The record is a 45-nucleotide RNA sequence from bacterium 1XD21-70, which matches "PreQ1 (pre queuosine) riboswitch aptamer" in Rfam. It scores 53 bits against the family's covariance model. Pairs were carried over by alignment from the consensus structure. About the family: This family is a bacterial riboswitch that binds to the metabolite preQ1, an intermediate in the biosynthesis of the modified nucleoside queuosine from GTP. One example of this riboswitch is located in the leader of the Bacillus subtilis ykvJKLM (queCDEF) operon which encodes four genes necessary for queuosine production. PreQ1 binding to the riboswitch aptamer is thought to induce premature transcription termination within the leader to down-regulate expression of these genes. The family has 43 seed sequences and 873 matches in Rfam 15.1.

RNA sequence: AAUAGACUGGUUCGAAAACCUCCCAGUAUAAAAAACUAGGCACAA
Numbered sequence: 001a002a003u004a005g006a007c008u009g010g011u012u013c014g015a016a017a018a019c020c021u022c023c024c025a026g027u028a029u030a031a032a033a034a035a036c037u038a039g040g041c042a043c044a045a
Base pairs, nucleotide, nucleotide: 006027007026008025009024010023016037